[Rfam]
RNA sequence: UUCUUAUCAAGAGAGGUGGAGGGACUGGCCCUUUGAAGCCUCGGCAACAGACUCGCAUGAGUACUGUGCCAAUUCCAGCAAGCAAUGCUUGAAGGAUAAGAA
Numbered sequence: 001u002u003c004u005u006a007u008c009a010a011g012a013g014a015g016g017u018g019g020a021g022g023g024a025c026u027g028g029c030c031c032u033u034u035g036a037a038g039c040c041u042c043g044g045c046a047a048c049a050g051a052c053u054c055g056c057a058u059g060a061g062u063a064c065u066g067u068g069c070c071a072a073u074u075c076c077a078g079c080a081a082g083c084a085a086u087g088c089u090u091g092a093a094g095g096a097u098a099a100g101a102a
Base pairs, nucleotide, nucleotide: 001102002101003100004099005098006097007096008095013042014041015040016039017038021031022030023029025078026077027076028075043070044069045068046067048066049065051062052061053060054059074094079091080090081089082088083087
Background
A member of the RNA family "SAM riboswitch aptamer (S box leader)" from Guptibacillus hwajinpoensis, 102 nucleotides long. The match comes from Rfam's covariance-model search (95 bits). Lineage of the source: Bacteria > Bacillati > Bacilli > Guptibacillaceae > Guptibacillus.